[Rfam]
RNA sequence: GGUCGAUGAUGAUAAAAUUUAAGGCUUGUUUCUCAAAACAUUCGCAGUGGCCGACUAAGAGCUUUCGUCUGCGCAGACUUGAGAGCUAAUGCUGCUUUAUCCUUCCUUGGAUGUCUGAGACC
Numbered sequence: 001g002g003u004c005g006a007u008g009a010u011g012a013u014a015a016a017a018u019u020u021a022a023g024g025c026u027u028g029u030u031u032c033u034c035a036a037a038a039c040a041u042u043c044g045c046a047g048u049g050g051c052c053g054a055c056u057a058a059g060a061g062c063u064u065u066c067g068u069c070u071g072c073g074c075a076g077a078c079u080u081g082a083g084a085g086c087u088a089a090u091g092c093u094g095c096u097u098u099a100u101c102c103u104u105c106c107u108u109g110g111a112u113g114u115c116u117g118a119g120a121c122c
Stems, first nucleotide, its partner, number of pairs: 001122004061086006
RNA: Small nucleolar RNA SNORD14
Organism: Spinacia oleracea